RNA: osmY RNA
RNA sequence: GCGGUACAUGGGUUUGUUGCCGCUACGCUUACGGUUGUGAGUGGAAUAACGUAUAAGAAGGAAGAUAUCGAUG
Numbered sequence: 001g002c003g004g005u006a007c008a009u010g011g012g013u014u015u016g017u018u019g020c021c022g023c024u025a026c027g028c029u030u031a032c033g034g035u036u037g038u039g040a041g042u043g044g045a046a047u048a049a050c051g052u053a054u055a056a057g058a059a060g061g062a063a064g065a066u067a068u069c070g071a072u073g
Stems, first nucleotide, its partner, number of pairs: 002022004006017003026043006